[Rfam]
A member of the RNA family "sraA" from Brenneria goodwinii, 95 nucleotides long. The organism belongs to Brenneria, within Bacteria.
RNA sequence: AGGUAAUUGAGUAUAUGGGGAUAAAUAUCUUACAUUCAACGGUCAGAAUACGCGUAAAAGCGAAUGGGGGAUAAAAUCCCCCAUUUUUGUCUUUC
Numbered sequence: 001a002g003g004u005a006a007u008u009g010a011g012u013a014u015a016u017g018g019g020g021a022u023a024a025a026u027a028u029c030u031u032a033c034a035u036u037c038a039a040c041g042g043u044c045a046g047a048a049u050a051c052g053c054g055u056a057a058a059a060g061c062g063a064a065u066g067g068g069g070g071a072u073a074a075a076a077u078c079c080c081c082c083a084u085u086u087u088u089g090u091c092u093u094u095c
Stems, first nucleotide, its partner, number of pairs: 008038001010036003016032005062086011